[Rfam]
RNA sequence: AGAGUCCUGAGAUGUACGUUGCGUUGCCUGAAGUUUUGACCGAACAUUAAUUAUUCGGGAGUCUAGAGUUUCCUGAUUGCGUAAAUGCCCCACUCUUAUACGGGUAAGGGGACUUACAAUUUCGGGAACAGGGCACCCCCCUGCUGAAUGCGGGAUCAAAACUAAGGAUGUUAAAAGUGACGGCAUAAUUGGGACUCUU
Numbered sequence: 001a002g003a004g005u006c007c008u009g010a011g012a013u014g015u016a017c018g019u020u021g022c023g024u025u026g027c028c029u030g031a032a033g034u035u036u037u038g039a040c041c042g043a044a045c046a047u048u049a050a051u052u053a054u055u056c057g058g059g060a061g062u063c064u065a066g067a068g069u070u071u072c073c074u075g076a077u078u079g080c081g082u083a084a085a086u087g088c089c090c091c092a093c094u095c096u097u098a099u100a101c102g103g104g105u106a107a108g109g110g111g112a113c114u115u116a117c118a119a120u121u122u123c124g125g126g127a128a129c130a131g132g133g134c135a136c137c138c139c140c141c142u143g144c145u146g147a148a149u150g151c152g153g154g155a156u157c158a159a160a161a162c163u164a165a166g167g168a169u170g171u172u173a174a175a176a177g178u179g180a181c182g183g184c185a186u187a188a189u190u191g192g193g194a195c196u197c198u199u
Stems, first nucleotide, its partner, number of pairs: 002197009012186004017182003032163004037158003040154002057138003061134004066129001071127006083115002088111004
Shown here is a 199-nucleotide sequence, a member of the family "6S / SsrS RNA".
The family has 150 seed sequences and 5,006 matches in Rfam 15.1.
Pairs were carried over by alignment from the consensus structure, which is taken from published work.
The family's RNA type in Rfam is non-coding RNA gene.